[Rfam]
RNA sequence: AUAUUUAUGCUAUUCAUACCAAAGAAAGUAACGGAGUAAAAUCUUAAUAAUGUUACCGAGGAAUGAUCAUAUUUGAAUUAUUUCAAAUGUAAUUUAACCUUGGUAUUAACCAAGGUUUUUAUUUGGUUAA
Numbered sequence: 001a002u003a004u005u006u007a008u009g010c011u012a013u014u015c016a017u018a019c020c021a022a023a024g025a026a027a028g029u030a031a032c033g034g035a036g037u038a039a040a041a042u043c044u045u046a047a048u049a050a051u052g053u054u055a056c057c058g059a060g061g062a063a064u065g066a067u068c069a070u071a072u073u074u075g076a077a078u079u080a081u082u083u084c085a086a087a088u089g090u091a092a093u094u095u096a097a098c099c100u101u102g103g104u105a106u107u108a109a110c111c112a113a114g115g116u117u118u119u120u121a122u123u124u125g126g127u128u129a130a
Stems, first nucleotide, its partner, number of pairs: 028056006034043002098115007